[Rfam]
RNA sequence: ACACAGCUAUGACCUAUGAAUUGACAGCCAGUUCUCUGUCUGUAUCCUGGCUGUCAGUUUUGUAGGACACAAGUAUGU
Numbered sequence: 001a002c003a004c005a006g007c008u009a010u011g012a013c014c015u016a017u018g019a020a021u022u023g024a025c026a027g028c029c030a031g032u033u034c035u036c037u038g039u040c041u042g043u044a045u046c047c048u049g050g051c052u053g054u055c056a057g058u059u060u061u062g063u064a065g066g067a068c069a070c071a072a073g074u075a076u077g078u
Stems, first nucleotide, its partner, number of pairs: 001078003005074001008071001010069002013066004018060014
RNA: mir-192/215 microRNA precursor family